A member of the RNA family "Bacterial RNase P class A" from Paludibacterium denitrificans, 357 nucleotides long. Gene Ontology terms of the family: ribonuclease P activity, dimeric ribonuclease P complex and tRNA processing. It scores 285 bits against the family's covariance model.
RNA sequence: GAAGUCAGCCAGACAGUCGCCGCGCCUUCGGGCGGGGAGGAAAGUCCGGGCUCCGCAGAGCAGGAUCUUGGGCCUUAACAGCCGGGCGCCGUGAGGCGACGGAAAGUGGAACAGAGAGCUGAACCGCCGAUGGCUCCUUCGGGAGAUCAGGUAAGGGUGAAAAGGUGCGGUAAGAGCGCACCGCGUCCGUGGUAACACGCGACGGCAGGCUAAACCCCAUCCGGAGCAAGACCAAAUAGGGGGGCGCUAACGUGGCUCGCGUUGUCCCCGGGUAGGUUGCUUGAGCCUGUCGGUAACGGCAGGACUAGAGGAAUGACUGUCCAACGACAAAACCCGGCUUAUCGACUGACUUCCCAC
Numbered sequence: 001g002a003a004g005u006c007a008g009c010c011a012g013a014c015a016g017u018c019g020c021c022g023c024g025c026c027u028u029c030g031g032g033c034g035g036g037g038a039g040g041a042a043a044g045u046c047c048g049g050g051c052u053c054c055g056c057a058g059a060g061c062a063g064g065a066u067c068u069u070g071g072g073c074c075u076u077a078a079c080a081g082c083c084g085g086g087c088g089c090c091g092u093g094a095g096g097c098g099a100c101g102g103a104a105a106g107u108g109g110a111a112c113a114g115a116g117a118g119c120u121g122a123a124c125c126g127c128c129g130a131u132g133g134c135u136c137c138u139u140c141g142g143g144a145g146a147u148c149a150g151g152u153a154a155g156g157g158u159g160a161a162a163a164g165g166u167g168c169g170g171u172a173a174g175a176g177c178g179c180a181c182c183g184c185g186u187c188c189g190u191g192g193u194a195a196c197a198c199g200c201g202a203c204g205g206c207a208g209g210c211u212a213a214a215c216c217c218c219a220u221c222c223g224g225a226g227c228a229a230g231a232c233c234a235a236a237u238a239g240g241g242g243g244g245c246g247c248u249a250a251c252g253u254g255g256c257u258c259g260c261g262u263u264g265u266c267c268c269c270g271g272g273u274a275g276g277u278u279g280c281u282u283g284a285g286c287c288u289g290u291c292g293g294u295a296a297c298g299g300c301a302g303g304a305c306u307a308g309a310g311g312a313a314u315g316a317c318u319g320u321c322c323a324a325c326g327a328c329a330a331a332a333c334c335c336g337g338c339u340u341a342u343c344g345a346c347u348g349a350c351u352u353c354c355c356a357c
Stems, first nucleotide, its partner, number of pairs: 001353008010344001011342001012321007020037002023034004042340003046337005051226004058258004063222004068085004086100001087098004101217002106215002108211002124156002126152003132147001134145004164182006183206001184204004189198003230278004240269006249263005286303007
About the family: Ribonuclease P (RNase P) is a ubiquitous endoribonuclease, found in archaea, bacteria and eukarya as well as chloroplasts and mitochondria. The base pairs follow the family's consensus structure, which is taken from published work.